Overview: The family of this 385-nucleotide sequence from Rickettsia prowazekii is "Bacterial RNase P class A". The family's RNA type in Rfam is ribozyme.
RNA sequence: CUAAAUGGUCGUGCAGUUGCGUGAUGAUAAUCACGAGGAAAGUCCGGACUCUAUAGAGGUAUGGUGCCGGUUAACAUCCGGCAGAGUAUUAUUACUUUAGGGCUAGUACCACAGAAAAUAUACCGCCGAGUAUUUCGGUAAGGGUGAAAAGGUGUGGUAAGAGCACACCGGUAAGUUGGCAACAAGUUACGCAUGGUUAACCCCACCAAGAGCAAGAUCAAAUAGGCAUUACAGAAUUUAAAUAUUUAUUUAAGUUCCUGGGUUACCUCUAAUCGGAUUGUAAUGCGGGUAGAUCGCUUGAGGUAAACGGUAACGUUUAUCCUAGAUAAAUAACUGCAAUGAAUUAAUAUUCAUACAGAAUCCGGCUUAUAGACCAGAUGAGCAG
Numbered sequence: 001c002u003a004a005a006u007g008g009u010c011g012u013g014c015a016g017u018u019g020c021g022u023g024a025u026g027a028u029a030a031u032c033a034c035g036a037g038g039a040a041a042g043u044c045c046g047g048a049c050u051c052u053a054u055a056g057a058g059g060u061a062u063g064g065u066g067c068c069g070g071u072u073a074a075c076a077u078c079c080g081g082c083a084g085a086g087u088a089u090u091a092u093u094a095c096u097u098u099a100g101g102g103c104u105a106g107u108a109c110c111a112c113a114g115a116a117a118a119u120a121u122a123c124c125g126c127c128g129a130g131u132a133u134u135u136c137g138g139u140a141a142g143g144g145u146g147a148a149a150a151g152g153u154g155u156g157g158u159a160a161g162a163g164c165a166c167a168c169c170g171g172u173a174a175g176u177u178g179g180c181a182a183c184a185a186g187u188u189a190c191g192c193a194u195g196g197u198u199a200a201c202c203c204c205a206c207c208a209a210g211a212g213c214a215a216g217a218u219c220a221a222a223u224a225g226g227c228a229u230u231a232c233a234g235a236a237u238u239u240a241a242a243u244a245u246u247u248a249u250u251u252a253a254g255u256u257c258c259u260g261g262g263u264u265a266c267c268u269c270u271a272a273u274c275g276g277a278u279u280g281u282a283a284u285g286c287g288g289g290u291a292g293a294u295c296g297c298u299u300g301a302g303g304u305a306a307a308c309g310g311u312a313a314c315g316u317u318u319a320u321c322c323u324a325g326a327u328a329a330a331u332a333a334c335u336g337c338a339a340u341g342a343a344u345u346a347a348u349a350u351u352c353a354u355a356c357a358g359a360a361u362c363c364g365g366c367u368u369a370u371a372g373a374c375c376a377g378a379u380g381a382g383c384a385g
Base pairs, nucleotide, nucleotide: 002380003379006376007375008374009373010372011370012338013337014336015335016334017333018332020035021034022033023032024031025030040368041367042366044365045364046363047362048361049212050211051210052209058273060271062208063207064206065205066204067081068080069079070078082100083098084097085096086095087094088093101203102202106201107200108197109196110195123143124142125139126138127137128136129135130134151169152168153167154166155165156164170192171190172189173188174187176185177184178183216295217294218293219292226286227285228284229283230282231281265279268276269275302321303320304319305318306317307316308315309314